This 52-nucleotide sequence belongs to the Rfam family "Glutamine riboswitch aptamer (glnA leader)". Rfam's curators put it in the seed alignment. A reference for the family is Ames and Breaker (2011), "Bacterial aptamers that selectively bind glutamine", RNA Biol.
RNA sequence: AUCGUUCAACUCGAAAGAGUCGGAAGUAGGCGUAAAGCCGAAGGAACGCAUG
Number, nucleotide and partner (000 for none) at each position: 001a000002u000003c048004g047005u046006u045007c044008a000009a020010c019011u018012c017013g000014a000015a000016a000017g012018a011019g010020u009021c000022g000023g049024a000025a000026g000027u000028a000029g039030g038031c037032g000033u000034a000035a000036a000037g031038c030039c029040g000041a000042a000043g000044g007045a006046a005047c004048g003049c023050a000051u000052g000